[Rfam]
RNA: Selenocysteine insertion sequence 1
Organism: Stegodyphus mimosarum
RNA sequence: AAUAGGUUUAUGAAAAUUUAUUCCUAAAUCUGCAAGAGACGGAAUAAGUUGGAUGUCUGUUAGU
Number, nucleotide and partner (000 for none) at each position: 001a064002a000003u062004a061005g060006g000007u000008u000009u000010a000011u000012g000013a000014a000015a050016a049017u048018u047019u046020a045021u044022u043023c042024c041025u000026a000027a000028a000029u000030c038031u037032g000033c000034a000035a000036g000037a031038g030039a000040c000041g024042g023043a022044a021045u020046a019047a018048g017049u016050u015051g000052g000053a000054u000055g000056u000057c000058u000059g000060u005061u004062a003063g000064u001